[Rfam]
RNA sequence: GGGCUCUUAAAAAAGCGUAAAAAUUUUUUUUAUAUAAUAAAUAUGCUCCCUUUCAAGAAAUUGAAAGGGAGCUUUCUUAUUUU
Numbered sequence: 001g002g003g004c005u006c007u008u009a010a011a012a013a014a015g016c017g018u019a020a021a022a023a024u025u026u027u028u029u030u031u032a033u034a035u036a037a038u039a040a041a042u043a044u045g046c047u048c049c050c051u052u053u054c055a056a057g058a059a060a061u062u063g064a065a066a067g068g069g070a071g072c073u074u075u076c077u078u079a080u081u082u083u
Stems, first nucleotide, its partner, number of pairs: 045072012
A member of the RNA family "PyrG leader" from Metabacillus arenae, 83 nucleotides long. Its family is annotated with regulation of gene expression in the Gene Ontology. A reference for the family is Jensen-MacAllister et al. (2007), "Regulation of pyrG expression in Bacillus subtilis: CTP-regulated antitermination and reiterative transcription with pyrG templates in vitro", Mol Microbiol. The family's RNA type in Rfam is cis-regulatory leader. Lineage of the source: Bacteria > Bacilli > Caryophanales > Bacillaceae > Metabacillus.